RNA sequence: CAAUCAUGAAGAGAGGCGCGAGGGUACUGGCCCGCUGACCGCCCGGCAACCUGAUCCCAUUGAGGUCAAGGUGCUACCGCCAGCCCGUGAGGGACCAUGAUGG
Numbered sequence: 001c002a003a004u005c006a007u008g009a010a011g012a013g014a015g016g017c018g019c020g021a022g023g024g025u026a027c028u029g030g031c032c033c034g035c036u037g038a039c040c041g042c043c044c045g046g047c048a049a050c051c052u053g054a055u056c057c058c059a060u061u062g063a064g065g066u067c068a069a070g071g072u073g074c075u076a077c078c079g080c081c082a083g084c085c086c087g088u089g090a091g092g093g094a095c096c097a098u099g100a101u102g103g
Stems, first nucleotide, its partner, number of pairs: 001103001003101006013044001015043004022033003027083004045075004050071002053067004079095001084092002
RNA: SAM riboswitch aptamer (S box leader)